[Rfam]
RNA: SAM riboswitch aptamer (S box leader)
Nucleotides: 102
Base pairs, nucleotide, nucleotide: 001102002101003100004099005098006097007096008095013043014042016041017040018039022032023031024030026077027076028075029074044069045068046067047066049065050064051061053059073094078091079090080089081088
Number, partner (000 for none) and nucleotide at each position: 001102u002101u003100c004099u005098u006097a007096u008095c009000a010000a011000g012000a013043g014042c015000a016041g017040a018039c019000g020000g021000a022032g023031g024030g025000a026077c027076g028075a029074g030024c031023c032022c033000u034000a035000c036000g037000a038000u039018g040017u041016c042014g043013c044069a045068g046067c047066a048000a049065c050064c051061g052000a053059c054000c055000a056000c057000u058000u059053g060000g061051c062000a063000c064050g065049g066047u067046g068045c069044u070000a071000a072000u073094u074029c075028u076027u077026g078091c079090a080089g081088c082000u083000a084000u085000u086000a087000c088081g089080c090079u091078g092000a093000c094073a095008g096007a097006u098005a099004a100003g101002a102001g